RNA sequence: AUACGCCGCACGGGAGAGUUUCAUCUCAGGCUUCAGGCUUGGUUUGAAACGCCGAAGGAGCAACCGCCCCGGAAACUCUCAGGCCACGGGACCGUGCCGGCGAG
Number, nucleotide and partner (000 for none) at each position: 001a000002u000003a000004c000005g000006c099007c000008g097009c096010a095011c094012g093013g092014g000015a000016g000017a000018g000019u049020u048021u047022c046023a000024u000025c000026u000027c000028a000029g000030g000031c000032u000033u000034c000035a000036g000037g000038c000039u000040u000041g000042g000043u000044u000045u000046g022047a021048a020049a019050c000051g084052c083053c082054g080055a079056a000057g000058g078059a077060g076061c000062a000063a000064c072065c071066g000067c000068c000069c000070c000071g065072g064073a000074a000075a000076c060077u059078c058079u055080c054081a000082g053083g052084c051085c000086a000087c000088g000089g000090g000091a000092c013093c012094g011095u010096g009097c008098c000099g006100g000101c000102g000103a000104g000